[Rfam]
RNA sequence: AGGCAUUCGUUGUAUGGAAGACUAGUGAUUUUGUUGUUAAUAUUCGACUAAACAAUAAGUCUCUAGUCAUCCUACAAAGUCUGCUG
Numbered sequence: 001a002g003g004c005a006u007u008c009g010u011u012g013u014a015u016g017g018a019a020g021a022c023u024a025g026u027g028a029u030u031u032u033g034u035u036g037u038u039a040a041u042a043u044u045c046g047a048c049u050a051a052a053c054a055a056u057a058a059g060u061c062u063c064u065a066g067u068c069a070u071c072c073u074a075c076a077a078a079g080u081c082u083g084c085u086g
Base pairs, nucleotide, nucleotide: 002085003084004083005082008079010077011076012075013074014073016071017070020068021067022066025063027061028060029059030058031057033056034055035054036053037052038051
A member of the RNA family "mir-7 microRNA precursor family" from Laodelphax striatellus, 86 nucleotides long. Pairs were carried over by alignment from the consensus structure, which was predicted with PFOLD. Rfam's curators write: This family represents the microRNA (miRNA) precursor mir-7. Its family is annotated with RISC complex and miRNA-mediated post-transcriptional gene silencing in the Gene Ontology. A search with the family's covariance model found it, with a score of 53 bits. The family has 132 seed sequences and 2,589 matches in Rfam 15.1.